Source information
The family of this 131-nucleotide sequence from Cottoperca gobio is "Small nucleolar RNA SNORA63". The family has 8 seed sequences and 1,279 matches in Rfam 15.1. The base pairs follow the family's consensus structure, which was predicted with PFOLD. On this family, see Mishra and Eliceiri, Proc Natl Acad Sci U S A 1997: "Three small nucleolar RNAs that are involved in ribosomal RNA precursor processing". Taxonomically the source falls in Cottoperca (Eukaryota, Actinopteri, Osteoglossocephalai, Acanthomorphata). Rfam's curators write: E3 belongs to the H/ACA class of snoRNAs and is involved in the processing of eukaryotic pre-rRNA and has regions of complementarity to 18S rRNA. E3 is encoded in introns in the gene for protein synthesis initiation factor 4AII.
RNA sequence: ACGCAGGAUAAGUUACAAUGCAGCUUGUUAAGUACUGCUUUGUCGUUCCCCCUGCAAACAAUAAUCUUGUUUCCUCGCUAUACCUGUCAGUCAGCAUCACUCGACUGCCAGGCACGAAAGGUUUCAGACAC
Dot-bracket structure: ..(((((.......((((.((((.(........))))).)))).......)))))...........................((((.((((............)))).))))...................